[Rfam]
RNA sequence: AGCCAAUGAUGUUUUAAGAGUAGUGGACAGAAAAUAUUUCUGACAAUUGUGCGCUGAGGCU
Numbered sequence: 001a002g003c004c005a006a007u008g009a010u011g012u013u014u015u016a017a018g019a020g021u022a023g024u025g026g027a028c029a030g031a032a033a034a035u036a037u038u039u040c041u042g043a044c045a046a047u048u049g050u051g052c053g054c055u056g057a058g059g060c061u
Base pairs, nucleotide, nucleotide: 001061002060003059004058
Small nucleolar RNA SNORD75: a 61-nucleotide RNA sequence from Podarcis muralis. Taxonomically the source falls in Podarcis (Eukaryota, Opisthokonta, Lacertidae, Lacertinae). Rfam links the family to the GO terms nucleolus and RNA processing.